[Rfam]
RNA sequence: UGUUUAUUUGUGACGGUUACAGAUCAAACCUUUGAAGUCUGUAAUCUGAUUAGUUGAAACA
Numbered sequence: 001u002g003u004u005u006a007u008u009u010g011u012g013a014c015g016g017u018u019a020c021a022g023a024u025c026a027a028a029c030c031u032u033u034g035a036a037g038u039c040u041g042u043a044a045u046c047u048g049a050u051u052a053g054u055u056g057a058a059a060c061a
Stems, first nucleotide, its partner, number of pairs: 001061005015046010

The record is a 61-nucleotide sequence from Megalops atlanticus, which matches "Selenocysteine insertion sequence 1" in Rfam.
The family's consensus secondary structure is taken from published work.
Gene Ontology term of the family: selenocysteine incorporation.
It scores 35 bits against the family's covariance model.
It is annotated as a cis-regulatory element.